[Rfam]
Shown here is a 75-nucleotide RNA sequence from Micromonospora sp. MW-13, a member of the family "ASpks TB sRNA". NCBI's taxonomy places the organism under Bacteria, Actinomycetota, Actinomycetes, Micromonosporales, Micromonospora. For this family Rfam cites "Identification of small RNAs in Mycobacterium tuberculosis" (Arnvig and Young, Mol Microbiol, 2009). It is annotated as an antisense RNA.

Nucleotides: 075
Stems, first nucleotide, its partner, number of pairs: 015025001031071003038065002043060003047056003
Number, partner (000 for none) and nucleotide at each position: 001000c002000u003000u004000g005000a006000u007000c008000g009000a010000c011000c012000c013000g014000a015025g016000g017000a018000a019000c020000a021000g022000c023000g024000g025015c026000c027000g028000g029000u030000c031071c032070g033069c034000c035000g036000g037000c038065c039064g040000g041000c042000c043060c044059u045058g046000c047056c048055c049054g050000u051000a052000c053000g054049u055048g056047g057000c058045c059044a060043g061000c062000a063000a064039c065038g066000c067000c068000u069033g070032c071031g072000c073000c074000u075000c